[Rfam]
RNA: Small nucleolar RNA SNORA25
RNA sequence: AAGAUGCAACAAGAGAGCUUAUGGGACCAAUACCAGGAGCUCUUAAUGCUGUGACCUGAGAUUGAAGUUGUCCAUAGGAUGUAACAGACACCCAAUAGUGCUAUGUUUUCCUGAGGAGAUAUAAGA
Numbered sequence: 001a002a003g004a005u006g007c008a009a010c011a012a013g014a015g016a017g018c019u020u021a022u023g024g025g026a027c028c029a030a031u032a033c034c035a036g037g038a039g040c041u042c043u044u045a046a047u048g049c050u051g052u053g054a055c056c057u058g059a060g061a062u063u064g065a066a067g068u069u070g071u072c073c074a075u076a077g078g079a080u081g082u083a084a085c086a087g088a089c090a091c092c093c094a095a096u097a098g099u100g101c102u103a104u105g106u107u108u109u110c111c112u113g114a115g116g117a118g119a120u121a122u123a124a125g126a
Stems, first nucleotide, its partner, number of pairs: 003055001005053003013044008022036001025034001069119001071117003076112004084104001086102002089100003